[Rfam]
RNA sequence: AACGAUAAAGGCAAACCACUCGAAAGGGUGGGACGCAAAGCCAUAGGGCCUUUCAGCGAAUUGAAUGGCAGCCGAGCUACCGAAA
Numbered sequence: 001a002a003c004g005a006u007a008a009a010g011g012c013a014a015a016c017c018a019c020u021c022g023a024a025a026g027g028g029u030g031g032g033a034c035g036c037a038a039a040g041c042c043a044u045a046g047g048g049c050c051u052u053u054c055a056g057c058g059a060a061u062u063g064a065a066u067g068g069c070a071g072c073c074g075a076g077c078u079a080c081c082g083a084a085a
Stems, first nucleotide, its partner, number of pairs: 003082002011036002016031006034071001039078003044074001046073002048069003